Rfam assigns this 101-nucleotide RNA from Desulfosporosinus metallidurans to the family "Purine riboswitch aptamer". Lineage of the source: Bacteria > Bacillati > Clostridia > Desulfitobacteriaceae > Desulfosporosinus. The base pairs follow the family's consensus structure, which is taken from published work.
[Rfam]
RNA sequence: AACAGAAUAGUGAAUUUCACUCAUAUAUCCUUGAUAAUUGGAUCAAGGGUUUCUACGAGGCAACCGUAAAUUGCUUCUCUAUGAGCCAGGGAUGGUUCAUG
Numbered sequence: 001a002a003c004a005g006a007a008u009a010g011u012g013a014a015u016u017u018c019a020c021u022c023a024u025a026u027a028u029c030c031u032u033g034a035u036a037a038u039u040g041g042a043u044c045a046a047g048g049g050u051u052u053c054u055a056c057g058a059g060g061c062a063a064c065c066g067u068a069a070a071u072u073g074c075u076u077c078u079c080u081a082u083g084a085g086c087c088a089g090g091g092a093u094g095g096u097u098c099a100u101g
Stems, first nucleotide, its partner, number of pairs: 020085006029048007057077007